[Rfam]
RNA sequence: AAAAAGACGUUGAAGAGGAGUAUUAAGCCGCAAGAGGUUUCAGAGAGCUGCCGGAGGGUGAAAGGCAGUGCCGAAAACGGCCCAACUCGCCUCGGAGUUCCAUGGCAGAACCAUUAUAAGAACCGCCGGUUAUGAGGCGGCCGGCAGAUGCAAGUAAGCCAUGGCGGGGGAUCCCGUUACAGAUUUUUAAAGUGCAUAUCCGCUUUGCGGCGGAUAUGAAAUAGAGUGGUACCGCGGAUUUCAGCCCUUCGUCUCUAUA
Numbered sequence: 001a002a003a004a005a006g007a008c009g010u011u012g013a014a015g016a017g018g019a020g021u022a023u024u025a026a027g028c029c030g031c032a033a034g035a036g037g038u039u040u041c042a043g044a045g046a047g048c049u050g051c052c053g054g055a056g057g058g059u060g061a062a063a064g065g066c067a068g069u070g071c072c073g074a075a076a077a078c079g080g081c082c083c084a085a086c087u088c089g090c091c092u093c094g095g096a097g098u099u100c101c102a103u104g105g106c107a108g109a110a111c112c113a114u115u116a117u118a119a120g121a122a123c124c125g126c127c128g129g130u131u132a133u134g135a136g137g138c139g140g141c142c143g144g145c146a147g148a149u150g151c152a153a154g155u156a157a158g159c160c161a162u163g164g165c166g167g168g169g170g171a172u173c174c175c176g177u178u179a180c181a182g183a184u185u186u187u188u189a190a191a192g193u194g195c196a197u198a199u200c201c202g203c204u205u206u207g208c209g210g211c212g213g214a215u216a217u218g219a220a221a222u223a224g225a226g227u228g229g230u231a232c233c234g235c236g237g238a239u240u241u242c243a244g245c246c247c248u249u250c251g252u253c254u255c256u257a258u259a
Base pairs, nucleotide, nucleotide: 007098008097015093016092017091018090027081028080029079030078036072037071038070047069048068049067050066051065052064101163102162103161104160105159106158165176166175167174195218196217197216198215199214200213201212202211203210223256224255225254226253234252235251236250237249238248

Shown here is a 259-nucleotide sequence from Lachnotalea sp. AF33-28, a member of the family "T-box leader". It is annotated as a cis-regulatory leader. The source organism's lineage runs through Bacteria, Bacillati, Bacillota, Clostridia and Lachnotalea.